[Rfam]
RNA sequence: GGCAGGAGAGCAGGUAACGAAAUCCAACCGCAGCUGGGAUGCUCAGAGGAAGACAGCUGCUUUUGGGAUUCCGUUGCCCGCUGUCGCGCCA
Numbered sequence: 001g002g003c004a005g006g007a008g009a010g011c012a013g014g015u016a017a018c019g020a021a022a023u024c025c026a027a028c029c030g031c032a033g034c035u036g037g038g039a040u041g042c043u044c045a046g047a048g049g050a051a052g053a054c055a056g057c058u059g060c061u062u063u064u065g066g067g068a069u070u071c072c073g074u075u076g077c078c079c080g081c082u083g084u085c086g087c088g089c090c091a
Stems, first nucleotide, its partner, number of pairs: 009082003013078001017074003021070003024066004030060007

Record summary:
The record is a 91-nucleotide RNA sequence from Mauremys mutica, which matches "mir-191 microRNA precursor family" in Rfam. Rfam links the family to the GO terms RISC complex and miRNA-mediated post-transcriptional gene silencing. The base pairs follow the family's consensus structure, which was predicted with RNAalifold.